The family of this 66-nucleotide RNA sequence from Kluyvera genomosp. 3 is "rdlD antitoxin".
The pairing is the family consensus, mapped onto this sequence.
The match comes from Rfam's covariance-model search (52 bits).
The literature on the family includes a 2002 paper in Mol Microbiol by Kawano et al., "Molecular characterization of long direct repeat (LDR) sequences expressing a stable mRNA encoding for a 35-amino-acid cell-killing peptide and a cis-encoded small antisense RNA in Escherichia coli".
Lineage of the source: Bacteria > Pseudomonadati > Pseudomonadota > Gammaproteobacteria > Kluyvera.
Gene Ontology terms of the family: negative regulation of translation and mRNA binding.
RNA sequence: UUGAGGUUUCAAGAAUCGCCCCCUUAUGUUGCCCGGUUAACGCCGAACAAUGUGCGGGGGUUUUCU
Numbered sequence: 001u002u003g004a005g006g007u008u009u010c011a012a013g014a015a016u017c018g019c020c021c022c023c024u025u026a027u028g029u030u031g032c033c034c035g036g037u038u039a040a041c042g043c044c045g046a047a048c049a050a051u052g053u054g055c056g057g058g059g060g061u062u063u064u065c066u
Base pairs, nucleotide, nucleotide: 018061019060020059021058022057023056024054027052028051029050030049031048034045035044036043